[Rfam]
RNA sequence: UUUGUUAGAUUAUCUGCCUAAAUUUUAGGCAUGGGCUGGUGAUUAUUAUCACCGGCCU
Numbered sequence: 001u002u003u004g005u006u007a008g009a010u011u012a013u014c015u016g017c018c019u020a021a022a023u024u025u026u027a028g029g030c031a032u033g034g035g036c037u038g039g040u041g042a043u044u045a046u047u048a049u050c051a052c053c054g055g056c057c058u
Stems, first nucleotide, its partner, number of pairs: 016030003034057010
Pseudomonas sRNA P26: a 58-nucleotide RNA from Psychrosphaera saromensis. Rfam classes the family as a non-coding RNA gene. The match comes from Rfam's covariance-model search (42 bits). Taxonomically the source falls in Psychrosphaera (Bacteria, Pseudomonadati, Pseudomonadota, Pseudoalteromonadaceae). The family's consensus secondary structure was predicted with RNAalifold. Rfam describes the family as follows. This small RNA (sRNA) was computationally identified in the genome of the opportunistic pathogen Pseudomonas aeruginosa and its expression verified by northern blot analysis. P26 is conserved across many Gammaproteobacteria species and appears to be consistently located between the DNA directed RNA polymerase (beta subunit) and 50S ribosomal protein L7/L12 genes.